Overview
A member of the RNA family "Lysine riboswitch aptamer" from Roseburia sp. CAG:45, 179 nucleotides long. Riboswitches are metabolite binding domains within certain messenger RNAs that serve as precision sensors for their corresponding targets. Allosteric rearrangement of mRNA structure is mediated by ligand binding, and this results in modulation of gene expression. The organism belongs to Roseburia, within Bacteria. Pairs were carried over by alignment from the consensus structure, which is taken from published work.
RNA sequence: UAUGAAGGUAGAGGUUGCGUGAGACAAGAGUACUUGGUCGGAUAUGGCAGACAUAGAAGAAGACAUAAGGAAAGGGGAACACGCCGAAAGGUUAUUUUUCCUGCAAAGAAUAAUCUUGGGCAUGGAUUGAAGAAGUUCAUGACUGUCAUCUUGUAAUAAGAUGGGGCGCUAUCGGUAUG
Numbered sequence: 001u002a003u004g005a006a007g008g009u010a011g012a013g014g015u016u017g018c019g020u021g022a023g024a025c026a027a028g029a030g031u032a033c034u035u036g037g038u039c040g041g042a043u044a045u046g047g048c049a050g051a052c053a054u055a056g057a058a059g060a061a062g063a064c065a066u067a068a069g070g071a072a073a074g075g076g077g078a079a080c081a082c083g084c085c086g087a088a089a090g091g092u093u094a095u096u097u098u099u100c101c102u103g104c105a106a107a108g109a110a111u112a113a114u115c116u117u118g119g120g121c122a123u124g125g126a127u128u129g130a131a132g133a134a135g136u137u138c139a140u141g142a143c144u145g146u147c148a149u150c151u152u153g154u155a156a157u158a159a160g161a162u163g164g165g166g167c168g169c170u171a172u173c174g175g176u177a178u179g
Base pairs, nucleotide, nucleotide: 007173008172009171010170011169017084018083019082020081021080025076033069034068035067036066037064038063039062088117089116090115091114092113093112094111095110096109097108098107099106118144119143121141122140123139124138125137126136127135128134146164147163148162149161150160151159152158